RNA sequence: UUAAUGGGAUGAAGUGGGAGGUUGCCGGGCACCGACCCGGGUAAUUUCCAUGGACCAUGUCCGCUAAUCGGACGG
Numbered sequence: 001u002u003a004a005u006g007g008g009a010u011g012a013a014g015u016g017g018g019a020g021g022u023u024g025c026c027g028g029g030c031a032c033c034g035a036c037c038c039g040g041g042u043a044a045u046u047u048c049c050a051u052g053g054a055c056c057a058u059g060u061c062c063g064c065u066a067a068u069c070g071g072a073c074g075g
Base pairs, nucleotide, nucleotide: 014051015050016049018048019047020046021045025040026039027038028037029036060072061071062070
Shown here is a 75-nucleotide RNA from Luoshenia tenuis, a member of the family "S10-Clostridia ribosomal protein leader".